This 58-nucleotide RNA sequence from Streptomyces tsukubensis belongs to the Rfam family "msiK RNA". Taxonomically the source falls in Streptomyces (Bacteria, Bacillati, Actinomycetes, Kitasatosporales). The family has 120 seed sequences and 1,374 matches in Rfam 15.1. By type it is a cis-regulatory element. It scores 51 bits against the family's covariance model.
[Rfam]
RNA sequence: ACCAUUCUUCCUUUACUCGGAUCGUCCGGCACGUUCCUGCCGGUGAAGGGGGCCUCAC
Numbered sequence: 001a002c003c004a005u006u007c008u009u010c011c012u013u014u015a016c017u018c019g020g021a022u023c024g025u026c027c028g029g030c031a032c033g034u035u036c037c038u039g040c041c042g043g044u045g046a047a048g049g050g051g052g053c054c055u056c057a058c
Base pairs, nucleotide, nucleotide: 009050010049011048012047013046014045015044026043027042028041029040030039031038